[Rfam]
RNA sequence: AUCUCUUGAAGGAGCGGAUGCGCUGCAUCUGCCUUCAUACCUCCCUGUUGGACUUGGCCGAGCUUUUCGCUCGGCCUUUUUU
Numbered sequence: 001a002u003c004u005c006u007u008g009a010a011g012g013a014g015c016g017g018a019u020g021c022g023c024u025g026c027a028u029c030u031g032c033c034u035u036c037a038u039a040c041c042u043c044c045c046u047g048u049u050g051g052a053c054u055u056g057g058c059c060g061a062g063c064u065u066u067u068c069g070c071u072c073g074g075c076c077u078u079u080u081u082u
Stems, first nucleotide, its partner, number of pairs: 008036005056076008
Overview
Shown here is an 82-nucleotide RNA sequence from Roseobacter cerasinus, a member of the family "Singlet oxygen resistance RNA X". Its family is annotated with response to photooxidative stress in the Gene Ontology. The pairing is the family consensus, mapped onto this sequence. Lineage of the source: Bacteria > Pseudomonadati > Pseudomonadota > Alphaproteobacteria > Roseobacter. It scores 56 bits against the family's covariance model. Rfam classes the family as a small RNA. For this family Rfam cites "Photooxidative stress-induced and abundant small RNAs in Rhodobacter sphaeroides" (Berghoff et al., Mol Microbiol, 2009).